[Rfam]
RNA: U5 spliceosomal RNA
Organism: Quercus lobata
RNA sequence: AGCCGUGCGGUGAGCACAGAGCGAACUAUUCUUUCGCCUUUUACUAAAGAAUACCGUGCGCUCGCCGCAGAUAGCGGCAUACGCCAAUUUUUAUAGGGUAGUGUCCGAGGACGCUC
Numbered sequence: 001a002g003c004c005g006u007g008c009g010g011u012g013a014g015c016a017c018a019g020a021g022c023g024a025a026c027u028a029u030u031c032u033u034u035c036g037c038c039u040u041u042u043a044c045u046a047a048a049g050a051a052u053a054c055c056g057u058g059c060g061c062u063c064g065c066c067g068c069a070g071a072u073a074g075c076g077g078c079a080u081a082c083g084c085c086a087a088u089u090u091u092u093a094u095a096g097g098g099u100a101g102u103g104u105c106c107g108a109g110g111a112c113g114c115u116c
Stems, first nucleotide, its partner, number of pairs: 003077004008067008017058002027053008100115006